[Rfam]
RNA: Ma3 gene ribosomal frameshift signal
Organism: Equus asinus
Nucleotides: 063
Base pairs, nucleotide, nucleotide: 014047015046016045017041018040019039022036023035028062029061030060031059032058
Number, partner (000 for none) and nucleotide at each position: 001000g002000g003000g004000a005000a006000a007000c008000a009000a010000g011000g012000a013000c014047g015046g016045g017041g018040c019039u020000g021000a022036g023035g024000a025000g026000a027000u028062g029061a030060g031059c032058c033000g034000c035023c036022c037000c038000g039019a040018g041017u042000u043000c044000u045016c046015c047014u048000c049000a050000g051000g052000c053000a054000a055000g056000u057000a058032g059031g060030c061029u062028c063000a